[Rfam]
RNA sequence: AAAAAGGGUGCUUGUUACUGGAUAGCACACGAGCUCUUACGGGCUUGUGGGGUAUGGUAAUCAAGACAUACCCAGCACGUAAUUUUUGUUCCCGUGGGGCUGUUUCUUGGCAAAGUCUCAGAGACGCCCCC
Dot-bracket structure: .......((((((((((.....)))))(((((((((....)))))))))(((((((..........))))))))))))..................((((.(((((.((((...)..))))))))))))..
U11 spliceosomal RNA: a 131-nucleotide sequence from Diabrotica balteata. It is annotated as a spliceosomal small nuclear RNA. The match comes from Rfam's covariance-model search (91 bits). Gene Ontology terms of the family: U11 snRNP, pre-mRNA 5'-splice site binding and mRNA 5'-splice site recognition.